[Rfam]
RNA sequence: CUACGAGGAUGAUACCGGUAGUCGAACUCUCUCUUUCUGAUGGAUUACUGGAGAAACCACGUCAAUUCUGAGUAGC
Numbered sequence: 001c002u003a004c005g006a007g008g009a010u011g012a013u014a015c016c017g018g019u020a021g022u023c024g025a026a027c028u029c030u031c032u033c034u035u036u037c038u039g040a041u042g043g044a045u046u047a048c049u050g051g052a053g054a055a056a057c058c059a060c061g062u063c064a065a066u067u068c069u070g071a072g073u074a075g076c
Stems, first nucleotide, its partner, number of pairs: 001075004
Small nucleolar RNA SNORD26: a 76-nucleotide sequence from Galemys pyrenaicus. The base pairs follow the family's consensus structure, which was predicted with PFOLD. By type it is a C/D-box small nucleolar RNA. It scores 76 bits against the family's covariance model.